Background: The record is an 80-nucleotide RNA sequence from Kluyvera genomosp. 3, which matches "sroE RNA" in Rfam. Rfam describes the family as follows. This family consists of a number of bacterial sroE RNA genes of around 90 bases in length. sroE is found in several Enterobacterial species but its function is unknown.

RNA sequence: AUAACGAGAUGGGAAGCCGCUUGCUUCCCGUGUAUGAUUGAACCCCGCGGGCGUGUUCUGCGCCGAGGGUUCAUUUUUAU
Number, nucleotide and partner (000 for none) at each position: 001a000002u000003a000004a000005c000006g000007a000008g000009a000010u030011g029012g028013g027014a026015a025016g024017c023018c000019g000020c000021u000022u000023g017024c016025u015026u014027c013028c012029c011030g010031u000032g000033u000034a000035u000036g000037a000038u000039u073040g072041a071042a070043c069044c068045c067046c000047g000048c000049g000050g000051g000052c000053g000054u000055g000056u000057u000058c000059u000060g000061c000062g000063c000064c000065g000066a000067g045068g044069g043070u042071u041072c040073a039074u000075u000076u000077u000078u000079a000080u000